RNA sequence: UACUUCGCGAGAAGUAGUCUGGAGGAAGCCUGAGUGCAAAGGUGCGAGACGACGAACAGAAACCGCAUAGAAGGCCCAGAGUGCCGAGGCGAGCUGGCACAGGACAGCAAAGCCCAUCGGUUUGGCGCUUAGGGUAAAUGCGGCGUUUGCGCACAGAAAGUUUGCGUU
Numbered sequence: 001u002a003c004u005u006c007g008c009g010a011g012a013a014g015u016a017g018u019c020u021g022g023a024g025g026a027a028g029c030c031u032g033a034g035u036g037c038a039a040a041g042g043u044g045c046g047a048g049a050c051g052a053c054g055a056a057c058a059g060a061a062a063c064c065g066c067a068u069a070g071a072a073g074g075c076c077c078a079g080a081g082u083g084c085c086g087a088g089g090c091g092a093g094c095u096g097g098c099a100c101a102g103g104a105c106a107g108c109a110a111a112g113c114c115c116a117u118c119g120g121u122u123u124g125g126c127g128c129u130u131a132g133g134g135u136a137a138a139u140g141c142g143g144c145g146u147u148u149g150c151g152c153a154c155a156g157a158a159a160g161u162u163u164g165c166g167u168u
Base pairs, nucleotide, nucleotide: 001016002015003014004013005012006011028168030166036161037160042154043153044152045151046150047148048147049146050145051144063143064142065141066140067139068138074135075134076133079130080129081128082127083126084125088114089113090112093108094107095106096105
Dot-bracket structure: ((((((....))))))...........(.(.....((....((((((((((...........((((((.....(((..((((((...(((..((((........))))...)))..........))))))..)))..))))))))))).))))).....))....).)